Background
c-di-GMP-I-GGC riboswitch aptamer: a 107-nucleotide RNA from Xylanibacillus composti. The organism belongs to Xylanibacillus, within Bacteria.
RNA sequence: GGAGAAAAUGGCAAACCUGUCGAAAGGCAGGGACGCAAAGCCACAAGUCUUAGGUGCCCAGCAUGUGCUGAUUCGCGUGCGGCAUGAUGACGGUUGGGUUACCUUGA
Numbered sequence: 001g002g003a004g005a006a007a008a009u010g011g012c013a014a015a016c017c018u019g020u021c022g023a024a025a026g027g028c029a030g031g032g033a034c035g036c037a038a039a040g041c042c043a044c045a046a047g048u049c050u051u052a053g054g055u056g057c058c059c060a061g062c063a064u065g066u067g068c069u070g071a072u073u074c075g076c077g078u079g080c081g082g083c084a085u086g087a088u089g090a091c092g093g094u095u096g097g098g099u100u101a102c103c104u105u106g107a
Stems, first nucleotide, its partner, number of pairs: 003104002011036002016031006034093001039100004044096003047091003